RNA sequence: CGAUGAGGUAGAGGCGCGAUUGCUAAUAGUAGCUUUUCUGAGGAUGACAACGUUGAGGAAAAGAGAAAGGGGCCGUCGCCGAAGUGGAAGUAGAGGUCAGGAUACUUUUGCUGGAUCUGUAUUGAAUAAGUGCAGAGCUGUCAUAACUUGGAGCAAACUAAGUUAUGGAGGACUACCAUGAUU
Numbered sequence: 001c002g003a004u005g006a007g008g009u010a011g012a013g014g015c016g017c018g019a020u021u022g023c024u025a026a027u028a029g030u031a032g033c034u035u036u037u038c039u040g041a042g043g044a045u046g047a048c049a050a051c052g053u054u055g056a057g058g059a060a061a062a063g064a065g066a067a068a069g070g071g072g073c074c075g076u077c078g079c080c081g082a083a084g085u086g087g088a089a090g091u092a093g094a095g096g097u098c099a100g101g102a103u104a105c106u107u108u109u110g111c112u113g114g115a116u117c118u119g120u121a122u123u124g125a126a127u128a129a130g131u132g133c134a135g136a137g138c139u140g141u142c143a144u145a146a147c148u149u150g151g152a153g154c155a156a157a158c159u160a161a162g163u164u165a166u167g168g169a170g171g172a173c174u175a176c177c178a179u180g181a182u183u
Base pairs, nucleotide, nucleotide: 007177008176009175010174011173016079017078018077019076020075022073023072024071033063034062035061036060037059038058039057083112084111085110086109087108088107089106090105091104092103113139114138116136117135118134119133120132121131122130123129141168142167143166144165145164146163147162148161149160150159